The record is a 104-nucleotide RNA sequence, which matches "Purine riboswitch aptamer" in Rfam. About the family: Riboswitches are metabolite binding domains within certain messenger RNAs that serve as precision sensors for their corresponding targets.
[Rfam]
RNA sequence: AAUAACUGACAUAUCCUUACUCGUAUAGACUCGGAAAUAUGGUCUGAGUGUCUCUACCUGGUUCCCAAUGAAAGAACUAGACUACGAGUUAAAGUAUUCGGCUU
Numbered sequence: 001a002a003u004a005a006c007u008g009a010c011a012u013a014u015c016c017u018u019a020c021u022c023g024u025a026u027a028g029a030c031u032c033g034g035a036a037a038u039a040u041g042g043u044c045u046g047a048g049u050g051u052c053u054c055u056a057c058c059u060g061g062u063u064c065c066c067a068a069u070g071a072a073a074g075a076a077c078u079a080g081a082c083u084a085c086g087a088g089u090u091a092a093a094g095u096a097u098u099c100g101g102c103u104u
Stems, first nucleotide, its partner, number of pairs: 019089007029049007058080007